[Rfam]
RNA sequence: AAGAUUACUUCAAAUGGGAGCAUUGAUUGAGUCCUAUGUUCAUAAAGUGCUUCUCUUUGGGGUAGUUUUA
Numbered sequence: 001a002a003g004a005u006u007a008c009u010u011c012a013a014a015u016g017g018g019a020g021c022a023u024u025g026a027u028u029g030a031g032u033c034c035u036a037u038g039u040u041c042a043u044a045a046a047g048u049g050c051u052u053c054u055c056u057u058u059g060g061g062g063u064a065g066u067u068u069u070a
Stems, first nucleotide, its partner, number of pairs: 004066008014057001016055003019051006026043002
Source information
The record is a 70-nucleotide sequence from Cyprinus carpio, which matches "miR-430 microRNA precursor family" in Rfam. It scores 48 bits against the family's covariance model. NCBI's taxonomy places the organism under Eukaryota, Actinopteri, Osteoglossocephalai, Otophysi, Cyprinus carpio. The base pairs follow the family's consensus structure, which was predicted with RNAalifold. Rfam links the family to the GO terms RISC complex and miRNA-mediated post-transcriptional gene silencing. A reference for the family is Giraldez et al. (2005), "MicroRNAs regulate brain morphogenesis in zebrafish", Science.